RNA sequence: GAGGAAUCUUGCCAAAGCCGGUGAAAACCGGUGACGGAAAACUAAAGGGCCUUACCAUCCCCAUGGUUGGCAGCCAGUUGUCCGG
Numbered sequence: 001g002a003g004g005a006a007u008c009u010u011g012c013c014a015a016a017g018c019c020g021g022u023g024a025a026a027a028c029c030g031g032u033g034a035c036g037g038a039a040a041a042c043u044a045a046a047g048g049g050c051c052u053u054a055c056c057a058u059c060c061c062c063a064u065g066g067u068u069g070g071c072a073g074c075c076a077g078u079u080g081u082c083c084g085g
Base pairs, nucleotide, nucleotide: 012037013036017032018031019030020029021028022027040079041078042077043076047075048074049071050070051069056065057064058063
A member of the RNA family "c-di-GMP-I riboswitch aptamer" from Emergencia timonensis, 85 nucleotides long.